Shown here is a 154-nucleotide RNA from Physcomitrium patens, a member of the family "MIR898 microRNA precursor family".

RNA sequence: UUUGUUCAUUUCCGGCAUCUUGCUGUGCACUACUUAGUACGCGCGUAGUUGCAGGCAUUCCGGGUGCAGCAACUGACGCGGAAGACUUUUCCCAGAGUGUGCGCUUCAACUGGCGUGCUGAGUAGUGCACAGCAAUAUGCUGGGCAUGGACAGC
Numbered sequence: 001u002u003u004g005u006u007c008a009u010u011u012c013c014g015g016c017a018u019c020u021u022g023c024u025g026u027g028c029a030c031u032a033c034u035u036a037g038u039a040c041g042c043g044c045g046u047a048g049u050u051g052c053a054g055g056c057a058u059u060c061c062g063g064g065u066g067c068a069g070c071a072a073c074u075g076a077c078g079c080g081g082a083a084g085a086c087u088u089u090u091c092c093c094a095g096a097g098u099g100u101g102c103g104c105u106u107c108a109a110c111u112g113g114c115g116u117g118c119u120g121a122g123u124a125g126u127g128c129a130c131a132g133c134a135a136u137a138u139g140c141u142g143g144g145c146a147u148g149g150a151c152a153g154c
Base pairs, nucleotide, nucleotide: 003152004151005150006149007148008147009146011144012143013142014141015140016139017138018137020135021134022133023132024131025130026129027128028127029126030125031124032123033122034121035120036119037118038117039116040115041114042113049109050108051107053105055100056099057098058097059096060095062093063092073084074083

The source organism's lineage runs through Eukaryota, Embryophyta, Funariales, Funariaceae and Physcomitrium. Pairs were carried over by alignment from the consensus structure, which was predicted with RNAalifold. It is one of the family's seed sequences. Gene Ontology terms of the family: miRNA-mediated post-transcriptional gene silencing and RISC complex.